[Rfam]
RNA sequence: UAUCCAUGUUUACUACUACUUUUCAUCUCUUUUUCACUGAAAUGUCGAGUAUUUUUGCGAUGCAUGGUAAAGAAAUCAAGGUGACCAGGUUUCUUUUCAAUUUUCCCCCAUAAUUGAAGAGUUACAAUGCCAUCUGACAAGG
Numbered sequence: 001u002a003u004c005c006a007u008g009u010u011u012a013c014u015a016c017u018a019c020u021u022u023u024c025a026u027c028u029c030u031u032u033u034u035c036a037c038u039g040a041a042a043u044g045u046c047g048a049g050u051a052u053u054u055u056u057g058c059g060a061u062g063c064a065u066g067g068u069a070a071a072g073a074a075a076u077c078a079a080g081g082u083g084a085c086c087a088g089g090u091u092u093c094u095u096u097u098c099a100a101u102u103u104u105c106c107c108c109c110a111u112a113a114u115u116g117a118a119g120a121g122u123u124a125c126a127a128u129g130c131c132a133u134c135u136g137a138c139a140a141g142g
Stems, first nucleotide, its partner, number of pairs: 004067006017051005028040002079135005085129001089125002093121008
Shown here is a 142-nucleotide sequence from Caenorhabditis elegans, a member of the family "Caenorhabditis snoRNA ceN80". Gene Ontology terms of the family: nucleolus and RNA processing. The family's RNA type in Rfam is H/ACA-box small nucleolar RNA. It is one of the family's seed sequences. For this family Rfam cites "Systematic identification of non-coding RNA 2,2,7-trimethylguanosine cap structures in Caenorhabditis elegans" (Jia et al., BMC Mol Biol, 2007). Taxonomically the source falls in Caenorhabditis (Eukaryota, Metazoa, Eumetazoa, Rhabditida).